[Rfam]
Nucleotides: 211
Base pairs, nucleotide, nucleotide: 004207005206006205007204008203009202010201011200012198013197014196015195017194018193019192031181032180033179035178036177037176038175039174040173055155056154058151059150060149061148062147063146068145069144070143071142072141073140074139
Number, partner (000 for none) and nucleotide at each position: 001000g002000u003000u004207u005206c006205c007204c008203u009202g010201c011200c012198u013197g014196g015195u016000u017194c018193g019192u020000c021000a022000g023000g024000a025000u026000c027000a028000u029000a030000u031181u032180c033179c034000u035178u036177g037176a038175a039174c040173c041000g042000a043000u044000a045000a046000g047000c048000a049000u050000u051000u052000g053000u054000u055155g056154g057000u058151g059150c060149g061148g062147g063146a064000u065000u066000a067000u068145g069144c070143c071142g072141u073140g074139u075000g076000g077000g078000c079000g080000a081000g082000c083000g084000c085000g086000u087000c088000g089000c090000a091000u092000g093000g094000u095000u096000c097000a098000u099000a100000g101000u102000u103000g104000c105000a106000g107000u108000c109000c110000g111000g112000a113000c114000u115000c116000c117000c118000u119000g120000a121000a122000c123000c124000g125000g126000u127000g128000a129000u130000g131000u132000a133000c134000c135000c136000g137000a138000a139074a140073u141072g142071c143070g144069g145068c146063u147062u148061c149060c150059g151058c152000a153000g154056c155055c156000a157000c158000u159000c160000u161000g162000a163000a164000c165000c166000u167000c168000a169000c170000u171000u172000g173040g174039g175038u176037u177036c178035a179033g180032g181031a182000u183000g184000c185000c186000g187000a188000u189000c190000c191000a192019g193018c194017g195015g196014c197013c198012g199000a200011g201010g202009c203008g204007g205006g206005g207004a208000c209000c210000c211000c
A member of the RNA family "6S / SsrS RNA" from Cupriavidus basilensis, 211 nucleotides long. The family's consensus secondary structure is taken from published work. Rfam describes the family as follows. E. coli 6S RNA was the first non coding RNA to be sequenced, but its function was unknown until recently. It scores 48 bits against the family's covariance model. The family has 150 seed sequences and 5,006 matches in Rfam 15.1.